[Rfam]
RNA sequence: AUCAAUAAUCCACCACUUACCUAAUGGUUGAAGUGGGGGCUUGAAAAGCCCUUAUUGACUACCCUAAGUCUUUCGCAGACUACGUUGGAUUGGUCAUGACACCUUCGAAUGCUCUUCAAGUUCGCUGCUCUGUCGUCUAUGGUUAAAUGUUCUGAUGGGUAGGAACUGUGCUGUAGACCUAACAAGCCUUUCCAACAUUGGGUAUGAGGCAUAAUAC
Numbered sequence: 001a002u003c004a005a006u007a008a009u010c011c012a013c014c015a016c017u018u019a020c021c022u023a024a025u026g027g028u029u030g031a032a033g034u035g036g037g038g039g040c041u042u043g044a045a046a047a048g049c050c051c052u053u054a055u056u057g058a059c060u061a062c063c064c065u066a067a068g069u070c071u072u073u074c075g076c077a078g079a080c081u082a083c084g085u086u087g088g089a090u091u092g093g094u095c096a097u098g099a100c101a102c103c104u105u106c107g108a109a110u111g112c113u114c115u116u117c118a119a120g121u122u123c124g125c126u127g128c129u130c131u132g133u134c135g136u137c138u139a140u141g142g143u144u145a146a147a148u149g150u151u152c153u154g155a156u157g158g159g160u161a162g163g164a165a166c167u168g169u170g171c172u173g174u175a176g177a178c179c180u181a182a183c184a185a186g187c188c189u190u191u192c193c194a195a196c197a198u199u200g201g202g203u204a205u206g207a208g209g210c211a212u213a214a215u216a217c
Stems, first nucleotide, its partner, number of pairs: 002058007010039002013036002020027002040048003062202003066198001067081005084196006092188003099133002103127001106124005113211001115208004135178009147169002149166005155160001
RNA: HNH endonuclease-associated RNA and ORF (HEARO) RNA
Organism: Paenibacillus sp. HGF7